The record is a 94-nucleotide sequence from Miscanthus lutarioriparius, which matches "MIR5387 microRNA precursor family" in Rfam.
Gene Ontology terms of the family: miRNA-mediated post-transcriptional gene silencing and RISC complex.
A search with the family's covariance model found it, with a score of 70 bits.
NCBI's taxonomy places the organism under Eukaryota, Embryophyta, Spermatophyta, Poaceae, Miscanthus.
The family's consensus secondary structure was predicted with RNAalifold.
[Rfam]
RNA sequence: UGGUGGCUCCAACCGGGACUAAAGGUCCCCGCCACCACCUCUGGGCGCAGUAGCCGUUGGGGCAGGGACCUUUAGUCCCGGUUGGAGCCACCAA
Dot-bracket structure: ..(((((((((((((((((((((((((.((.((((.....((......)).....))..))...)))))))))))))))))))))))))))...